RNA sequence: UUGGCGACCGGGUCGACUUCCCGGGUCACCACCAGGUAUUCGCGCAGUGCGAUGGCGUGCAGGUGCUC
Dot-bracket structure: ....(..(..(((.((((.....)))))))....(.((.(((((...))))))).)..)..)......
A member of the RNA family "ASdes TB sRNA" from Mycobacterium tuberculosis, 68 nucleotides long. The organism belongs to Mycobacterium tuberculosis, within Bacteria.